A member of the RNA family "SAM riboswitch aptamer (S box leader)" from Pontibacter arcticus, 106 nucleotides long. Pairs were carried over by alignment from the consensus structure, which is taken from published work. It scores 77 bits against the family's covariance model.
RNA sequence: UUCUUAUCAAGAAAGACUGAGGGACAGGGCCCUGUGAUGUCUUAGCAACCAUGGUAACGCUUGGUGCUAACUCCCUCCCGGUAACCAUGCCCGGGAAAGAUAAGAC
Number, nucleotide and partner (000 for none) at each position: 001u000002u105003c104004u103005u102006a101007u100008c099009a000010a000011g000012a000013a043014a042015g041016a040017c039018u000019g000020a000021g032022g031023g030024a000025c000026a076027g075028g074029g073030c023031c022032c021033u000034g000035u000036g000037a000038u000039g017040u016041c015042u014043u013044a068045g067046c066047a065048a000049c064050c063051a000052u059053g058054g000055u000056a000057a000058c053059g052060c000061u000062u000063g050064g049065u047066g046067c045068u044069a000070a000071c000072u098073c029074c028075c027076u026077c095078c094079c093080g092081g091082u000083a000084a000085c000086c000087a000088u000089g000090c000091c081092c080093g079094g078095g077096a000097a000098a072099g008100a007101u006102a005103a004104g003105a002106c000